Overview: MIR168 microRNA precursor family: a 309-nucleotide sequence from Capsicum baccatum. The match comes from Rfam's covariance-model search (80 bits). Pairs were carried over by alignment from the consensus structure, which was predicted with WAR. The organism belongs to Capsicum, within Eukaryota.

RNA sequence: GUUGCUGUCGUCUCUAAUUCGCUUGGUGCAGGUCGGGAACUGACUCGCCGGUGACUGUCAGCUCCGUAUUUUCAUUCGAAUUUAUCAUAUAUGUAUUGCCUGUUACUGGUUGGAGGUGUCAGCAUUCCGUGGAUUUAGUCUAGGUGCGCGAAAGCUGGCGAGGACAUUAUGGAUAUAAAAGAAAAUAUUAUGUGUAGAUAUGUAGAGAGAUUUUAGGUUGAUGAGUUACUUAUGGAUGAGUAAUGCGUCCUCGUCUAUAGCGAAGUUUGUUCCCGCCUUGCAUCAACUGAAUCGGAGACUGCGGUGAAU
Numbered sequence: 001g002u003u004g005c006u007g008u009c010g011u012c013u014c015u016a017a018u019u020c021g022c023u024u025g026g027u028g029c030a031g032g033u034c035g036g037g038a039a040c041u042g043a044c045u046c047g048c049c050g051g052u053g054a055c056u057g058u059c060a061g062c063u064c065c066g067u068a069u070u071u072u073c074a075u076u077c078g079a080a081u082u083u084a085u086c087a088u089a090u091a092u093g094u095a096u097u098g099c100c101u102g103u104u105a106c107u108g109g110u111u112g113g114a115g116g117u118g119u120c121a122g123c124a125u126u127c128c129g130u131g132g133a134u135u136u137a138g139u140c141u142a143g144g145u146g147c148g149c150g151a152a153a154g155c156u157g158g159c160g161a162g163g164a165c166a167u168u169a170u171g172g173a174u175a176u177a178a179a180a181g182a183a184a185a186u187a188u189u190a191u192g193u194g195u196a197g198a199u200a201u202g203u204a205g206a207g208a209g210a211u212u213u214u215a216g217g218u219u220g221a222u223g224a225g226u227u228a229c230u231u232a233u234g235g236a237u238g239a240g241u242a243a244u245g246c247g248u249c250c251u252c253g254u255c256u257a258u259a260g261c262g263a264a265g266u267u268u269g270u271u272c273c274c275g276c277c278u279u280g281c282a283u284c285a286a287c288u289g290a291a292u293c294g295g296a297g298a299c300u301g302c303g304g305u306g307a308a309u
Stems, first nucleotide, its partner, number of pairs: 013296002017292004023286010034275005040269001